[Rfam]
RNA sequence: GGCAGUUCUUGGGUGACACACCCCAGAAUCAGGCUCCCUUCUCUCUGGAUCCAGGUGCGUCGCCCGAAAAACCUCA
Numbered sequence: 001g002g003c004a005g006u007u008c009u010u011g012g013g014u015g016a017c018a019c020a021c022c023c024c025a026g027a028a029u030c031a032g033g034c035u036c037c038c039u040u041c042u043c044u045c046u047g048g049a050u051c052c053a054g055g056u057g058c059g060u061c062g063c064c065c066g067a068a069a070a071a072c073c074u075c076a
Stems, first nucleotide, its partner, number of pairs: 002075001005072003009067009019057004026051002029048005
Rfam assigns this 76-nucleotide RNA from Myotis myotis to the family "mir-9223 microRNA precursor family". The source organism's lineage runs through Eukaryota, Chordata, Teleostomi, Vespertilionidae and Myotis. Pairs were carried over by alignment from the consensus structure, which was predicted with RNAalifold. It scores 58 bits against the family's covariance model.